[Rfam]
RNA sequence: AGGUGGAAAUCGGGAGACGCUGACGAAAGUCAGGGCCGAAGGAGCAACCGCCCCGGGAAACUCUCAGGCAAAACGAACCGUUUUCCAUAU
Numbered sequence: 001a002g003g004u005g006g007a008a009a010u011c012g013g014g015a016g017a018c019g020c021u022g023a024c025g026a027a028a029g030u031c032a033g034g035g036c037c038g039a040a041g042g043a044g045c046a047a048c049c050g051c052c053c054c055g056g057g058a059a060a061c062u063c064u065c066a067g068g069c070a071a072a073a074c075g076a077a078c079c080g081u082u083u084u085c086c087a088u089a090u
Stems, first nucleotide, its partner, number of pairs: 006085004011080003020033004035069003038065002042063003048056002

Rfam assigns this 90-nucleotide RNA sequence from Paracoccus shanxieyensis to the family "Glycine riboswitch aptamer".
It scores 60 bits against the family's covariance model.
This family represents the bacterial glycine riboswitch. Glycine riboswitches usually consist of two metabolite-binding aptamers domains with similar structures in tandem. The aptamers cooperatively bind glycine to regulate the expression of downstream genes. In Bacillus subtilis, this riboswitch is found upstream of the gcvT operon which controls glycine degradation.
The pairing is the family consensus, mapped onto this sequence.
Taxonomically the source falls in Paracoccus (Bacteria, Pseudomonadati, Alphaproteobacteria, Rhodobacterales).